[Rfam]
RNA: Small nucleolar RNA SNORD19
RNA sequence: GAGAAAUGAGGAUACAUCCUGUGUCUUACUUCUGAGUGAAGACUGCAGAUCCAACUCUGAUCUCACACUGACG
Numbered sequence: 001g002a003g004a005a006a007u008g009a010g011g012a013u014a015c016a017u018c019c020u021g022u023g024u025c026u027u028a029c030u031u032c033u034g035a036g037u038g039a040a041g042a043c044u045g046c047a048g049a050u051c052c053a054a055c056u057c058u059g060a061u062c063u064c065a066c067a068c069u070g071a072c073g
Stems, first nucleotide, its partner, number of pairs: 001064004
Dot-bracket structure: ((((........................................................)))).........